RNA: chrB-b RNA
Organism: Bradyrhizobium sp. Leo170
RNA sequence: UCGGGGUCCGCAGACCCCCGGCAUCCCAAGACGGCCCGCCGUCCAAGUUCUGC
Numbered sequence: 001u002c003g004g005g006g007u008c009c010g011c012a013g014a015c016c017c018c019c020g021g022c023a024u025c026c027c028a029a030g031a032c033g034g035c036c037c038g039c040c041g042u043c044c045a046a047g048u049u050c051u052g053c
Stems, first nucleotide, its partner, number of pairs: 001021006010053005030043005